[Rfam]
Nucleotides: 102
Stems, first nucleotide, its partner, number of pairs: 019087007029049001031047005058078007
Number, partner (000 for none) and nucleotide at each position: 001000a002000a003000c004000g005000u006000a007000a008000a009000u010000u011000a012000a013000a014000u015000a016000u017000u018000u019087a020086g021085u022084c023083g024082u025081a026000u027000a028000a029049u030000g031047u032046c033045g034044a035043g036000a037000a038000u039000a040000u041000g042000g043035c044034u045033c046032g047031a048000a049029a050000g051000u052000u053000u054000c055000u056000a057000c058078c059077a060076a061075g062074c063073u064072a065000c066000c067000u068000u069000a070000a071000a072064u073063a074062g075061c076060u077059u078058g079000a080000c081025u082024a083023c084022g085021a086020u087019u088000u089000g090000g091000a092000a093000u094000a095000a096000a097000u098000g099000a100000u101000g102000g